This 106-nucleotide RNA sequence from Sulfobacillus harzensis belongs to the Rfam family "SAM riboswitch aptamer (S box leader)". Lineage of the source: Bacteria > Bacillati > Bacillota > Clostridia > Sulfobacillus. It scores 91 bits against the family's covariance model. Pairs were carried over by alignment from the consensus structure, which is taken from published work. Rfam links the family to the GO term regulation of gene expression.
[Rfam]
RNA sequence: CCCUUAUCAAGAGCAGCCGAGGGACUGGCCCGAUGACGCUGCAGCAACCUGCCUGAGGUUGGCAUGGUGCUAAUUCCUUCCCUCGACGAUGAGGGAGAGAUGAGAG
Dot-bracket structure: (.((((((....(((((...(((...[[)))......)))))((((.((((((.......)))).))))))...(]]..((((((....))))))..))))))).)
Numbered sequence: 001c002c003c004u005u006a007u008c009a010a011g012a013g014c015a016g017c018c019g020a021g022g023g024a025c026u027g028g029c030c031c032g033a034u035g036a037c038g039c040u041g042c043a044g045c046a047a048c049c050u051g052c053c054u055g056a057g058g059u060u061g062g063c064a065u066g067g068u069g070c071u072a073a074u075u076c077c078u079u080c081c082c083u084c085g086a087c088g089a090u091g092a093g094g095g096a097g098a099g100a101u102g103a104g105a106g
Stems, first nucleotide, its partner, number of pairs: 001106001003104006013042005021031003027077002043071004048067002050064004075098001080095006